T-box leader: a 299-nucleotide RNA from Hydrogenispora ethanolica.

[Rfam]
RNA sequence: UGAAAGACAAUGAUCAAGGAAAGUACUCUGUGGAGUUCCUUUAGAGAGAAAGGGUCACCGGCUGCAAACCCUUUUAGGAUUGAAUCAGGGGAAGUUCCCUUGGGAGUUGGCCGCUGAAAAGGCGGAGUUUGACCGCAGGUUAUUUUGAAUGCGGUCAAGCGACCCGAUUAGGUUGGCCCGGAAGCCCGCCGUUAACAGGGAUAGGGUAUCGAAAGAACAGUUUUCCGUACCCGAGAGCGAGUCAGUGUAUGACUAAAAUGGGUGGUACCGCGGAAUUUGGCCCACGUUUCGUCCCAAUC
Numbered sequence: 001u002g003a004a005a006g007a008c009a010a011u012g013a014u015c016a017a018g019g020a021a022a023g024u025a026c027u028c029u030g031u032g033g034a035g036u037u038c039c040u041u042u043a044g045a046g047a048g049a050a051a052g053g054g055u056c057a058c059c060g061g062c063u064g065c066a067a068a069c070c071c072u073u074u075u076a077g078g079a080u081u082g083a084a085u086c087a088g089g090g091g092a093a094g095u096u097c098c099c100u101u102g103g104g105a106g107u108u109g110g111c112c113g114c115u116g117a118a119a120a121g122g123c124g125g126a127g128u129u130u131g132a133c134c135g136c137a138g139g140u141u142a143u144u145u146u147g148a149a150u151g152c153g154g155u156c157a158a159g160c161g162a163c164c165c166g167a168u169u170a171g172g173u174u175g176g177c178c179c180g181g182a183a184g185c186c187c188g189c190c191g192u193u194a195a196c197a198g199g200g201a202u203a204g205g206g207u208a209u210c211g212a213a214a215g216a217a218c219a220g221u222u223u224u225c226c227g228u229a230c231c232c233g234a235g236a237g238c239g240a241g242u243c244a245g246u247g248u249a250u251g252a253c254u255a256a257a258a259u260g261g262g263u264g265g266u267a268c269c270g271c272g273g274a275a276u277u278u279g280g281c282c283c284a285c286g287u288u289u290c291g292u293c294c295c296a297a298u299c
Stems, first nucleotide, its partner, number of pairs: 007107002015102004026090005040078002050073006110177004114172002179191003240254005259296004270292007
The family has 48 seed sequences and 19,395 matches in Rfam 15.1. It is annotated as a cis-regulatory leader. Gene Ontology term of the family: tRNA binding. Rfam describes the family as follows. Uncharged tRNA acts as the effector for transcription antitermination of genes in the T-box leader family. The organism belongs to Hydrogenispora, within Bacteria.